[Rfam]
Notes:
A member of the RNA family "BsrC" from Cerasibacillus terrae, 88 nucleotides long. The family has 29 seed sequences and 572 matches in Rfam 15.1. Taxonomically the source falls in Cerasibacillus (Bacteria, Bacillati, Bacilli, Bacillaceae). On this family, see Saito et al., Gene 2008: "Novel small RNA-encoding genes in the intergenic regions of Bacillus subtilis". It scores 60 bits against the family's covariance model. From the family's description: The 301 nucleotide sequence from Kouji Nakamura has been trimmed to a highly conserved ~85 nucleotide long core to form this family.
RNA sequence: UCUAGCUUAAGCAACACAAGCCCUUCCUACUCUUGUGUCCUUGCGACCCUUUAGUCGCGCCAGUCCGAAUAAGCAUUCUCAAAAACAG
Numbered sequence: 001u002c003u004a005g006c007u008u009a010a011g012c013a014a015c016a017c018a019a020g021c022c023c024u025u026c027c028u029a030c031u032c033u034u035g036u037g038u039c040c041u042u043g044c045g046a047c048c049c050u051u052u053a054g055u056c057g058c059g060c061c062a063g064u065c066c067g068a069a070u071a072a073g074c075a076u077u078c079u080c081a082a083a084a085a086c087a088g
Base pairs, nucleotide, nucleotide: 036067037066040063041062042059043058044057045056046055047054